[Rfam]
RNA sequence: GGGUGAGGUAGAGGCGCGGGUAUUAUGAGUAGUUUAAAGGAGAUUGCAAGUCGAUGAAUUUAAAUGAAAGGAAGACCGCCGAAGUGUAUAGUUCUUGCAAAACUAUAUGCUGGGUUUACAUCGAAUAGGUGUAAAACUGUCAUUUAAGCUAUCCCGUAGCUUAAAUGGAGAGCUAUCUUACUU
Numbered sequence: 001g002g003g004u005g006a007g008g009u010a011g012a013g014g015c016g017c018g019g020g021u022a023u024u025a026u027g028a029g030u031a032g033u034u035u036a037a038a039g040g041a042g043a044u045u046g047c048a049a050g051u052c053g054a055u056g057a058a059u060u061u062a063a064a065u066g067a068a069a070g071g072a073a074g075a076c077c078g079c080c081g082a083a084g085u086g087u088a089u090a091g092u093u094c095u096u097g098c099a100a101a102a103c104u105a106u107a108u109g110c111u112g113g114g115u116u117u118a119c120a121u122c123g124a125a126u127a128g129g130u131g132u133a134a135a136a137c138u139g140u141c142a143u144u145u146a147a148g149c150u151a152u153c154c155c156g157u158a159g160c161u162u163a164a165a166u167g168g169a170g171a172g173c174u175a176u177c178u179u180a181c182u183u
Base pairs, nucleotide, nucleotide: 006178007177008176009175010174011173016079017078018077019076021075023073024072032065033064034063035062036061037060038059083111084110085109086108087107088106089105090104091103092102093101112138113137115135116134117133118132119131120130121129122128140168141167142166143165144164145163146162147161148160149159